The family of this 371-nucleotide sequence from Denitratisoma oestradiolicum is "Bacterial RNase P class A".
[Rfam]
RNA sequence: GAAGUUCGCUAGGCAGCCGCUGUGAGCACAAGUUCAUGGAGGAAAGUCCGGGCCCCAUAGAGCAGGAUGCCGGCUAACGGCCGGGCGCAGCAAGCCUCGCAAGAGGCCCAAGGCGACGAACAGGGCAACAGAAAACAUACCGCCGAUGGCUCCGCAAGGAGAUCAGGUAAGGGCGAACCGGUGGGGUAAGAGCCCACCGCGGACGUGGCGACACGGACGGCACGGUAACCUCCAUCCGGGGCAAGGCCAAAUAGGGGGGCGAUAGCGUUGCUCGCGCUGCUCCCGGGUAGGCUGCUAGAGCCUGCCGGUAACGGCAGGCCCAGAGGAAUGGCUGCCCACGACAGAACCCGGCUUAUCGGCGAACUUCCCAC
Numbered sequence: 001g002a003a004g005u006u007c008g009c010u011a012g013g014c015a016g017c018c019g020c021u022g023u024g025a026g027c028a029c030a031a032g033u034u035c036a037u038g039g040a041g042g043a044a045a046g047u048c049c050g051g052g053c054c055c056c057a058u059a060g061a062g063c064a065g066g067a068u069g070c071c072g073g074c075u076a077a078c079g080g081c082c083g084g085g086c087g088c089a090g091c092a093a094g095c096c097u098c099g100c101a102a103g104a105g106g107c108c109c110a111a112g113g114c115g116a117c118g119a120a121c122a123g124g125g126c127a128a129c130a131g132a133a134a135a136c137a138u139a140c141c142g143c144c145g146a147u148g149g150c151u152c153c154g155c156a157a158g159g160a161g162a163u164c165a166g167g168u169a170a171g172g173g174c175g176a177a178c179c180g181g182u183g184g185g186g187u188a189a190g191a192g193c194c195c196a197c198c199g200c201g202g203a204c205g206u207g208g209c210g211a212c213a214c215g216g217a218c219g220g221c222a223c224g225g226u227a228a229c230c231u232c233c234a235u236c237c238g239g240g241g242c243a244a245g246g247c248c249a250a251a252u253a254g255g256g257g258g259g260c261g262a263u264a265g266c267g268u269u270g271c272u273c274g275c276g277c278u279g280c281u282c283c284c285g286g287g288u289a290g291g292c293u294g295c296u297a298g299a300g301c302c303u304g305c306c307g308g309u310a311a312c313g314g315c316a317g318g319c320c321c322a323g324a325g326g327a328a329u330g331g332c333u334g335c336c337c338a339c340g341a342c343a344g345a346a347c348c349c350g351g352c353u354u355a356u357c358g359g360c361g362a363a364c365u366u367c368c369c370a371c
Base pairs, nucleotide, nucleotide: 001367002366003365004364005363006362007361008360009359010358011356012336013335014334015333016332017331018330020039021038022037023036024035025034026033027032044354045353046352048351049350050349051348052347053241054240055239056238060273061272062271063270065237066236067235068234069233070084071083072082073081074080085117086115087114088113118232119231123230124229125226126225140172141171142168143167144166148163150161151160152159153158180198181197182196183195184194185193199221200219201218204215205214206213207212245293246292247291248290255284256283257282258281259280260279264278265277266276267275268274300319301318302317303316304315305314306313307312
NCBI's taxonomy places the organism under Bacteria, Pseudomonadati, Nitrosomonadales, Sterolibacteriaceae, Denitratisoma. The family's consensus secondary structure is taken from published work.